Description: This 81-nucleotide RNA from Candidatus Thiodiazotropha endolucinida belongs to the Rfam family "SAH (S-adenosyl-L-homocysteine) riboswitch aptamer". Lineage of the source: Bacteria > Pseudomonadati > Gammaproteobacteria > Sedimenticolaceae > Candidatus Thiodiazotropha. Gene Ontology terms of the family: S-adenosylhomocysteine metabolic process and regulation of gene expression. The family has 52 seed sequences and 1,354 matches in Rfam 15.1. It scores 62 bits against the family's covariance model.
[Rfam]
RNA sequence: CUGACCGAGGAGCGCUGCAACGGGUGAACAUCCGCCAGGCUCGGAAGGGAGGCUUGAUGCAAUCAACCGCGCUCACUCACG
Numbered sequence: 001c002u003g004a005c006c007g008a009g010g011a012g013c014g015c016u017g018c019a020a021c022g023g024g025u026g027a028a029c030a031u032c033c034g035c036c037a038g039g040c041u042c043g044g045a046a047g048g049g050a051g052g053c054u055u056g057a058u059g060c061a062a063u064c065a066a067c068c069g070c071g072c073u074c075a076c077u078c079a080c081g
Stems, first nucleotide, its partner, number of pairs: 002047001005044004021034005